[Rfam]
RNA sequence: ACGCCCUGCUCGUGAUCGUCUUCUCAACCUUCACGGGACAGGUGCCCGAGAGGCCCCCGCGCGGUCGAUUCGCGCGGGGGCCUCUC
Numbered sequence: 001a002c003g004c005c006c007u008g009c010u011c012g013u014g015a016u017c018g019u020c021u022u023c024u025c026a027a028c029c030u031u032c033a034c035g036g037g038a039c040a041g042g043u044g045c046c047c048g049a050g051a052g053g054c055c056c057c058c059g060c061g062c063g064g065u066c067g068a069u070u071c072g073c074g075c076g077g078g079g080g081c082c083u084c085u086c
Stems, first nucleotide, its partner, number of pairs: 002044002005042004010037002012034004018028002048086016